[Rfam]
RNA sequence: AAAGCAGGUCUGCAAUUGCAGCACUCCAUUGCAGUAGAGUGCUGUCAUUAACCCUGCUGAGAGCAUCUUUCUGCAACAGAGCUGACUCCUGCUCACUGUGGUGAUGAGGAAGCUCUGUAGCUGAACAUUU
Numbered sequence: 001a002a003a004g005c006a007g008g009u010c011u012g013c014a015a016u017u018g019c020a021g022c023a024c025u026c027c028a029u030u031g032c033a034g035u036a037g038a039g040u041g042c043u044g045u046c047a048u049u050a051a052c053c054c055u056g057c058u059g060a061g062a063g064c065a066u067c068u069u070u071c072u073g074c075a076a077c078a079g080a081g082c083u084g085a086c087u088c089c090u091g092c093u094c095a096c097u098g099u100g101g102u103g104a105u106g107a108g109g110a111a112g113c114u115c116u117g118u119a120g121c122u123g124a125a126c127a128u129u130u
Base pairs, nucleotide, nucleotide: 003058004057005056006055007054008053019044020043021042022041023040024039025038026037070124071123073121074120076118077117078116079115088109089108090107093104094103095102096101
A member of the RNA family "Small nucleolar RNA SNORA69" from Perca flavescens, 130 nucleotides long. The base pairs follow the family's consensus structure, which was predicted with PFOLD. A search with the family's covariance model found it, with a score of 51 bits. NCBI's taxonomy places the organism under Eukaryota, Deuterostomia, Euacanthomorphacea, Percinae, Perca. Its family is annotated with nucleolus and RNA processing in the Gene Ontology. U69 is a member of the H/ACA class of small nucleolar RNAs (snoRNAs) which act as guides in the the modification of uridines to pseudouridines. The family's RNA type in Rfam is H/ACA-box small nucleolar RNA.